[Rfam]
RNA sequence: AUCAUAACCGUUCAGGUAACCGCUGCAUCGCAUGCGAUGUAGAGGAAAGUCCAUGCUCGCACAGGCUGAGAUGCUUGUAGUGUUCGUGCCUAGCGAAGUCAUAAGCUAGGGUAGUCUGGUUCUUAGAACUGGGCUAACGGCAAGGUAAGCACCUACGUUCAUCAUGAAUAUGGUGUGAUGCCUUUGAAAGUGCCACAGUGACGUAGUCCGUUUGGAAACAGACGGAGUGGAACGAGGUAAACCCCUCGAGCGAGAAACCCAAAAAUUGGUAGGGGAACCUUCUUGAAGGAAAUGAACGGAGAGAAGGACGGAAGUUUUACUUCUGUAGACAGAUGGUUACCACCGGAGUACGAGGUUCAUCACCGUUUGUAGUACGAAGGAACAGAACAUGGCUUAUCGAACGGGAAUGAGA
Numbered sequence: 001a002u003c004a005u006a007a008c009c010g011u012u013c014a015g016g017u018a019a020c021c022g023c024u025g026c027a028u029c030g031c032a033u034g035c036g037a038u039g040u041a042g043a044g045g046a047a048a049g050u051c052c053a054u055g056c057u058c059g060c061a062c063a064g065g066c067u068g069a070g071a072u073g074c075u076u077g078u079a080g081u082g083u084u085c086g087u088g089c090c091u092a093g094c095g096a097a098g099u100c101a102u103a104a105g106c107u108a109g110g111g112u113a114g115u116c117u118g119g120u121u122c123u124u125a126g127a128a129c130u131g132g133g134c135u136a137a138c139g140g141c142a143a144g145g146u147a148a149g150c151a152c153c154u155a156c157g158u159u160c161a162u163c164a165u166g167a168a169u170a171u172g173g174u175g176u177g178a179u180g181c182c183u184u185u186g187a188a189a190g191u192g193c194c195a196c197a198g199u200g201a202c203g204u205a206g207u208c209c210g211u212u213u214g215g216a217a218a219c220a221g222a223c224g225g226a227g228u229g230g231a232a233c234g235a236g237g238u239a240a241a242c243c244c245c246u247c248g249a250g251c252g253a254g255a256a257a258c259c260c261a262a263a264a265a266u267u268g269g270u271a272g273g274g275g276a277a278c279c280u281u282c283u284u285g286a287a288g289g290a291a292a293u294g295a296a297c298g299g300a301g302a303g304a305a306g307g308a309c310g311g312a313a314g315u316u317u318u319a320c321u322u323c324u325g326u327a328g329a330c331a332g333a334u335g336g337u338u339a340c341c342a343c344c345g346g347a348g349u350a351c352g353a354g355g356u357u358c359a360u361c362a363c364c365g366u367u368u369g370u371a372g373u374a375c376g377a378a379g380g381a382a383c384a385g386a387a388c389a390u391g392g393c394u395u396a397u398c399g400a401a402c403g404g405g406a407a408u409g410a411g412a
Stems, first nucleotide, its partner, number of pairs: 011401003014397001015341007023042006047395003051392005056254005061078006084249003088245001089110006111138001112136010139244002142184004150175004157169003190242002192238003207226008258274003278307007308326006343380002348375004
Shown here is a 412-nucleotide sequence from Halalkalibacterium halodurans, a member of the family "Bacterial RNase P class B". Its family is annotated with tRNA processing, ribonuclease P activity and dimeric ribonuclease P complex in the Gene Ontology. The literature on the family includes a 1998 paper in Annu Rev Biochem by Frank and Pace, "Ribonuclease P: unity and diversity in a tRNA processing ribozyme".